[Rfam]
RNA: mir-27 microRNA precursor family
RNA sequence: CCGAGGAGCAGGACUUAGCUCGCUUUGUGAACAGUGCAAACCGAUAUGUUCACAGUGGCUAAGUUCCGCUUCUUGC
Numbered sequence: 001c002c003g004a005g006g007a008g009c010a011g012g013a014c015u016u017a018g019c020u021c022g023c024u025u026u027g028u029g030a031a032c033a034g035u036g037c038a039a040a041c042c043g044a045u046a047u048g049u050u051c052a053c054a055g056u057g058g059c060u061a062a063g064u065u066c067c068g069c070u071u072c073u074u075g076c
Base pairs, nucleotide, nucleotide: 011066012065013064014063015062016061017060018059019058020057027053028052029051030050031049032048033047